A member of the RNA family "DUF3800-II RNA", 69 nucleotides long. The family's RNA type in Rfam is small RNA. It is one of the family's seed sequences.
RNA sequence: UUAACAAGAAUGUUUGGGGCAAAUCCCAGUGGGAAAGUCUGCUUCGGCAGACUACUAAACAUCCUGACC
Number, nucleotide and partner (000 for none) at each position: 001u000002u000003a000004a000005c000006a000007a065008g064009a000010a062011u000012g000013u059014u058015u057016g056017g055018g000019g000020c000021a000022a000023a000024u034025c033026c032027c031028a000029g000030u000031g027032g026033g025034a024035a000036a053037g052038u051039c050040u049041g048042c047043u000044u000045c000046g000047g042048c041049a040050g039051a038052c037053u036054a000055c017056u016057a015058a014059a013060c000061a000062u010063c000064c008065u007066g000067a000068c000069c000